Background
Shown here is a 49-nucleotide RNA from Methylophilales phage Melnitz-1 EXVC043M, a member of the family "Glutamine riboswitch aptamer (glnA leader)". Its family is annotated with glutamine binding in the Gene Ontology.
[Rfam]
RNA sequence: GACGUUCAUCCCUUUGGGACGGAAGUAGCAUUAUGCGAAGGAACGCACU
Numbered sequence: 001g002a003c004g005u006u007c008a009u010c011c012c013u014u015u016g017g018g019a020c021g022g023a024a025g026u027a028g029c030a031u032u033a034u035g036c037g038a039a040g041g042a043a044c045g046c047a048c049u
Stems, first nucleotide, its partner, number of pairs: 003045005009019004022046001028036003